This 410-nucleotide RNA sequence from Paenibacillus sp. TCA20 belongs to the Rfam family "Bacterial RNase P class A".
Gene Ontology terms of the family: dimeric ribonuclease P complex, tRNA processing and ribonuclease P activity.
The family's RNA type in Rfam is ribozyme.
Ribonuclease P (RNase P) is a ubiquitous endoribonuclease, found in archaea, bacteria and eukarya as well as chloroplasts and mitochondria.
Taxonomically the source falls in Paenibacillus (Bacteria, Bacillati, Bacillota, Paenibacillaceae).
[Rfam]
RNA sequence: AAAGUUUGACAGACAAUCGCUGGUGGCCUUGUUGCCACGAGAGGAAAGUCCGGGCUCCACAGGGCAGGAUGCUGGAUAACGUCCAGUCAGCGCGAGUUGAAGGAUAGUGCCACAGAAAUGGACCGCCGAUGGCUGGCUAUAUGGCUAGCACAGGCAAGGAUGGAACCGAGGUGUAAGAGACCCCGAGGAACGCUGGUGACUUCGUUCCUGGUAAACCCCAUCUGGAGCAAGACCUAAAGAGACACUGUCUUCCGUAAGGAAGGCAGCCUUAGCCCGAGGUGUGUCUAGGUUGGUCGCUUGAGCUGUUCAGCAAUGAAUGGCCUAGAUAGAUGAUUGUCGCUUGUGGUGGGAGGGUAGUUCCCGUUAUGACCACGAAGAGCACAGAACCCGGCUUACGUAAAACUUUCCAA
Numbered sequence: 001a002a003a004g005u006u007u008g009a010c011a012g013a014c015a016a017u018c019g020c021u022g023g024u025g026g027c028c029u030u031g032u033u034g035c036c037a038c039g040a041g042a043g044g045a046a047a048g049u050c051c052g053g054g055c056u057c058c059a060c061a062g063g064g065c066a067g068g069a070u071g072c073u074g075g076a077u078a079a080c081g082u083c084c085a086g087u088c089a090g091c092g093c094g095a096g097u098u099g100a101a102g103g104a105u106a107g108u109g110c111c112a113c114a115g116a117a118a119u120g121g122a123c124c125g126c127c128g129a130u131g132g133c134u135g136g137c138u139a140u141a142u143g144g145c146u147a148g149c150a151c152a153g154g155c156a157a158g159g160a161u162g163g164a165a166c167c168g169a170g171g172u173g174u175a176a177g178a179g180a181c182c183c184c185g186a187g188g189a190a191c192g193c194u195g196g197u198g199a200c201u202u203c204g205u206u207c208c209u210g211g212u213a214a215a216c217c218c219c220a221u222c223u224g225g226a227g228c229a230a231g232a233c234c235u236a237a238a239g240a241g242a243c244a245c246u247g248u249c250u251u252c253c254g255u256a257a258g259g260a261a262g263g264c265a266g267c268c269u270u271a272g273c274c275c276g277a278g279g280u281g282u283g284u285c286u287a288g289g290u291u292g293g294u295c296g297c298u299u300g301a302g303c304u305g306u307u308c309a310g311c312a313a314u315g316a317a318u319g320g321c322c323u324a325g326a327u328a329g330a331u332g333a334u335u336g337u338c339g340c341u342u343g344u345g346g347u348g349g350g351a352g353g354g355u356a357g358u359u360c361c362c363g364u365u366a367u368g369a370c371c372a373c374g375a376a377g378a379g380c381a382c383a384g385a386a387c388c389c390g391g392c393u394u395a396c397g398u399a400a401a402a403c404u405u406u407c408c409a410a
Stems, first nucleotide, its partner, number of pairs: 001406007009398002012338007020041002023038005046394003050391005055227004062275004067223005072086005087101001088099004102218002107216002109212003123159002125155003130150002167185002170182003187208006195200001231295004240286006266280005302321008